[Rfam]
RNA: mir-988 microRNA precursor family
RNA sequence: GCAUUUCGGGCGUGUGAUUUGUAGCAAAGUGAUAUGUACUUGAUAAUCCCCUUGUUGCAAACCUCACGCCGGAAAGAUGU
Numbered sequence: 001g002c003a004u005u006u007c008g009g010g011c012g013u014g015u016g017a018u019u020u021g022u023a024g025c026a027a028a029g030u031g032a033u034a035u036g037u038a039c040u041u042g043a044u045a046a047u048c049c050c051c052u053u054g055u056u057g058c059a060a061a062c063c064u065c066a067c068g069c070c071g072g073a074a075a076g077a078u079g080u
Stems, first nucleotide, its partner, number of pairs: 002079004006073002009070006016063001018061010029050001031048003